[Rfam]
RNA sequence: GGUGUGGCUCGAAAGAAGUGAACCCUUCCGAAGGAAAGGGGCGCAAGCCCUUAGUACGAGGAAGGGCGAUCGGGGUCACGCCUUUCGUCUUGAAACACGG
Numbered sequence: 001g002g003u004g005u006g007g008c009u010c011g012a013a014a015g016a017a018g019u020g021a022a023c024c025c026u027u028c029c030g031a032a033g034g035a036a037a038g039g040g041g042c043g044c045a046a047g048c049c050c051u052u053a054g055u056a057c058g059a060g061g062a063a064g065g066g067c068g069a070u071c072g073g074g075g076u077c078a079c080g081c082c083u084u085u086c087g088u089c090u091u092g093a094a095a096c097a098c099g100g
Base pairs, nucleotide, nucleotide: 001082002081003080004079005078006077007076008075009074010073015071016070023066024065025064026063027062028061029060033057038051039050040049041048042047085100086099087098088097
RNA: Archaeal large subunit ribosomal RNA, nucleotides 585 to 684
Organism: Sulfolobus acidocaldarius